RNA sequence: AACAAACCGUUGACGAGGAAGUAACGGUGGUAGCGCACUCACAGAGAGUCGGGGGUGCUGGGAUCCCGACAGGAAGCGAAUCAUCAAAUGGACCUCCGAGGGCUUUUGUGAAUCAGUGAUCAGUUUUGCCGUACGGUAAACGCAUUCGCGCAGUAGCAAAAGACGGGCGCUCCCGUUAUAGAGCAGAAAUGUGAUUGCAUUUCAUGAGUGGACGCGUAUAGCGUCAAGCAGUGGUGGCACCGCAGGAGUUUCGCUCUUGUCCCUGCA
Dot-bracket structure: ......((......((((.....(.(((.........((........((((((...........)))))))).......))).)........))))...)).(((((((..............................................))))))).(((......)))...................................(((((.....)))))....((.((.......(((((((.....)))))))))))...
Numbered sequence: 001a002a003c004a005a006a007c008c009g010u011u012g013a014c015g016a017g018g019a020a021g022u023a024a025c026g027g028u029g030g031u032a033g034c035g036c037a038c039u040c041a042c043a044g045a046g047a048g049u050c051g052g053g054g055g056u057g058c059u060g061g062g063a064u065c066c067c068g069a070c071a072g073g074a075a076g077c078g079a080a081u082c083a084u085c086a087a088a089u090g091g092a093c094c095u096c097c098g099a100g101g102g103c104u105u106u107u108g109u110g111a112a113u114c115a116g117u118g119a120u121c122a123g124u125u126u127u128g129c130c131g132u133a134c135g136g137u138a139a140a141c142g143c144a145u146u147c148g149c150g151c152a153g154u155a156g157c158a159a160a161a162g163a164c165g166g167g168c169g170c171u172c173c174c175g176u177u178a179u180a181g182a183g184c185a186g187a188a189a190u191g192u193g194a195u196u197g198c199a200u201u202u203c204a205u206g207a208g209u210g211g212a213c214g215c216g217u218a219u220a221g222c223g224u225c226a227a228g229c230a231g232u233g234g235u236g237g238c239a240c241c242g243c244a245g246g247a248g249u250u251u252c253g254c255u256c257u258u259g260u261c262c263c264u265g266c267a
Stems, first nucleotide, its partner, number of pairs: 007101002015096004024084001026082003038072002048070006103162007164175003211225005230264002233262002242260007
T-box leader: a 267-nucleotide sequence from Cryptobacterium sp. CAG:338. A search with the family's covariance model found it, with a score of 94 bits. Uncharged tRNA acts as the effector for transcription antitermination of genes in the T-box leader family. T-boxes are found upstream of many aminoacyl-tRNA synthetase genes and some amino acid biosynthetic genes usually in Gram-positive bacteria. The anticodon of a specific tRNA base pairs to a specifier sequence within the T-box motif, and the NCCA acceptor tail of the tRNA base pairs to a conserved bulge in the T-box antiterminator hairpin. Its family is annotated with tRNA binding in the Gene Ontology.